The family of this 98-nucleotide sequence from Bdellovibrio sp. NC01 is "Purine riboswitch aptamer". The base pairs follow the family's consensus structure, which is taken from published work. The organism belongs to Bdellovibrio, within Bacteria. It scores 52 bits against the family's covariance model.

RNA sequence: AUCAGUAACCGCACGAACGCAAAUAUAAGUCGGAGAUACGGUCCGGCGUUUCUACCCAUCGCCGUAAAUGAUGGUCUAUUUGGAGAUAGAAUGAAGAC
Dot-bracket structure: ...................((((((...((((((.......))))))........((((((.......))))))..))))))................
Numbered sequence: 001a002u003c004a005g006u007a008a009c010c011g012c013a014c015g016a017a018c019g020c021a022a023a024u025a026u027a028a029g030u031c032g033g034a035g036a037u038a039c040g041g042u043c044c045g046g047c048g049u050u051u052c053u054a055c056c057c058a059u060c061g062c063c064g065u066a067a068a069u070g071a072u073g074g075u076c077u078a079u080u081u082g083g084a085g086a087u088a089g090a091a092u093g094a095a096g097a098c
Stems, first nucleotide, its partner, number of pairs: 020082006029047006056074006